[Rfam]
RNA sequence: CCAGGUCUUCAGGGCGGGGUGAAAGUCCCCACCGGCGGUGAUCCGGCGCUCGCGCCGGGCAGCCCGCGAGCGCUCCGGCCGCUGCCGGAGGUCAGCAGAUCCGGUGCGAUUCCGGGGCCGACGGUGACAGUCCGGAUGAGAGAAGACGCAG
Numbered sequence: 001c002c003a004g005g006u007c008u009u010c011a012g013g014g015c016g017g018g019g020u021g022a023a024a025g026u027c028c029c030c031a032c033c034g035g036c037g038g039u040g041a042u043c044c045g046g047c048g049c050u051c052g053c054g055c056c057g058g059g060c061a062g063c064c065c066g067c068g069a070g071c072g073c074u075c076c077g078g079c080c081g082c083u084g085c086c087g088g089a090g091g092u093c094a095g096c097a098g099a100u101c102c103g104g105u106g107c108g109a110u111u112c113c114g115g116g117g118c119c120g121a122c123g124g125u126g127a128c129a130g131u132c133c134g135g136a137u138g139a140g141a142g143a144a145g146a147c148g149c150a151g
Stems, first nucleotide, its partner, number of pairs: 005147006017029003031131002033120002035067004062118002070096002100116005122134003
RNA: FMN riboswitch aptamer (RFN element)